[Rfam]
RNA sequence: GAUGCAUUGAUGAGUUGAAGCACGCGGGAGCGUGUUGGGCAGUGGGAAAUACCUAAAAAGUAUUUGCCGUAUGCCUUAAACAAAAACGACUUGUAUUUUCACUGAGCUUC
Numbered sequence: 001g002a003u004g005c006a007u008u009g010a011u012g013a014g015u016u017g018a019a020g021c022a023c024g025c026g027g028g029a030g031c032g033u034g035u036u037g038g039g040c041a042g043u044g045g046g047a048a049a050u051a052c053c054u055a056a057a058a059a060g061u062a063u064u065u066g067c068c069g070u071a072u073g074c075c076u077u078a079a080a081c082a083a084a085a086a087c088g089a090c091u092u093g094u095a096u097u098u099u100c101a102c103u104g105a106g107c108u109u110c
Stems, first nucleotide, its partner, number of pairs: 001110002004107002
A member of the RNA family "Small nucleolar RNA Z152/R70/R12/" from Papaver somniferum, 110 nucleotides long. Rfam classes the family as a C/D-box small nucleolar RNA. Rfam links the family to the GO terms nucleolus and RNA processing. Pairs were carried over by alignment from the consensus structure, which was predicted with PFOLD.